[Rfam]
RNA sequence: UUGCCGUGAUAACCAUGUUAGGACAUCUUUGGAACACCCAUGACAAACAUUUCAACAGUUCUGAGCAAC
Number, nucleotide and partner (000 for none) at each position: 001u068002u067003g066004c065005c000006g000007u000008g000009a000010u000011a000012a000013c000014c000015a000016u000017g000018u000019u000020a000021g000022g000023a000024c000025a000026u000027c000028u000029u000030u000031g000032g000033a000034a000035c000036a000037c000038c000039c000040a000041u000042g000043a000044c000045a000046a000047a000048c000049a000050u000051u000052u000053c000054a000055a000056c000057a000058g000059u000060u000061c000062u000063g000064a000065g004066c003067a002068a001069c000
Rfam assigns this 69-nucleotide RNA sequence from Chaetura pelagica to the family "Small nucleolar RNA SNORD58". The family has 33 seed sequences and 2,484 matches in Rfam 15.1. The source organism's lineage runs through Eukaryota, Craniata, Gnathostomata, Sauropsida and Chaetura. By type it is a C/D-box small nucleolar RNA. snoRNA U58 is found in introns 1, 3 and 6 of the ribosomal protein RPL17 gene in humans.